Rfam assigns this 231-nucleotide sequence from Arthrobacter crusticola to the family "c-di-AMP riboswitch aptamer (ydaO/yuaA leader)". A search with the family's covariance model found it, with a score of 55 bits. Taxonomically the source falls in Arthrobacter (Bacteria, Bacillati, Actinomycetes, Micrococcales). Rfam links the family to the GO terms cyclic-di-AMP binding and regulation of gene expression.

RNA sequence: GUCAGCGGACCGCUCUGACCCACCUCAUGACAGGGGCGGAGGACCCACUUCCCGGCAGCGCACCGCUGUCUUCGGGGUGAAGCCUCACUGCAUUGAACUGUCCGCACACAGUGGACCGGAUGCCCGCCUGCCCGUUUCGCGGCAGGCAGGGAGCCGGCCCUGUGCAGUGGGGCCGAGUCGACUCUUGCUCGAACCCGACAGCUAACUUCGCAGGCGUCGCAGAGAGGCAUG
Numbered sequence: 001g002u003c004a005g006c007g008g009a010c011c012g013c014u015c016u017g018a019c020c021c022a023c024c025u026c027a028u029g030a031c032a033g034g035g036g037c038g039g040a041g042g043a044c045c046c047a048c049u050u051c052c053c054g055g056c057a058g059c060g061c062a063c064c065g066c067u068g069u070c071u072u073c074g075g076g077g078u079g080a081a082g083c084c085u086c087a088c089u090g091c092a093u094u095g096a097a098c099u100g101u102c103c104g105c106a107c108a109c110a111g112u113g114g115a116c117c118g119g120a121u122g123c124c125c126g127c128c129u130g131c132c133c134g135u136u137u138c139g140c141g142g143c144a145g146g147c148a149g150g151g152a153g154c155c156g157g158c159c160c161u162g163u164g165c166a167g168u169g170g171g172g173c174c175g176a177g178u179c180g181a182c183u184c185u186u187g188c189u190c191g192a193a194c195c196c197g198a199c200a201g202c203u204a205a206c207u208u209c210g211c212a213g214g215c216g217u218c219g220c221a222g223a224g225a226g227g228c229a230u231g
Base pairs, nucleotide, nucleotide: 011216012215013214014213019035020034021033036211037210038209039208040207041206046074075196076195077194083172084171085170086169087168088167089166090165091164092163093162175190176189177188178187